Rfam assigns this 57-nucleotide RNA sequence to the family "Streptococcus sRNA SpF59 (ldcC RNA)".
[Rfam]
RNA sequence: UGACCAUCCCCCAUCCGGGGGGAUCGAGGCUACACGGACGGCCGGGUCAAAUGCCGA
Numbered sequence: 001u002g003a004c005c006a007u008c009c010c011c012c013a014u015c016c017g018g019g020g021g022g023a024u025c026g027a028g029g030c031u032a033c034a035c036g037g038a039c040g041g042c043c044g045g046g047u048c049a050a051a052u053g054c055c056g057a
Base pairs, nucleotide, nucleotide: 001049002048003047004046005045006024007023008022009021010020011019
Pairs were carried over by alignment from the consensus structure, which was predicted with mfold. A reference for the family is Mann et al. (2012), "Control of virulence by small RNAs in Streptococcus pneumoniae", PLoS Pathog. Rfam's curators put it in the seed alignment. By type it is a small RNA.